[Rfam]
RNA sequence: CUUCAGCGAGCCGAGCCACAGCGGCUGGUCCGCCGGACGGCCCUGGCCGUAGGUGGCCAGCAGCGCCUGCGCCUC
Number, nucleotide and partner (000 for none) at each position: 001c000002u000003u000004c000005a000006g000007c000008g000009a000010g000011c000012c000013g000014a026015g025016c024017c023018a000019c000020a000021g000022c000023g017024g016025c015026u014027g000028g000029u000030c000031c071032g070033c069034c000035g000036g000037a000038c065039g064040g000041c000042c000043c060044u059045g058046g000047c056048c055049g054050u000051a000052g000053g000054u049055g048056g047057c000058c045059a044060g043061c000062a000063g000064c039065g038066c000067c000068u000069g033070c032071g031072c000073c000074u000075c000
RNA: ASpks TB sRNA
Organism: Streptomyces thioluteus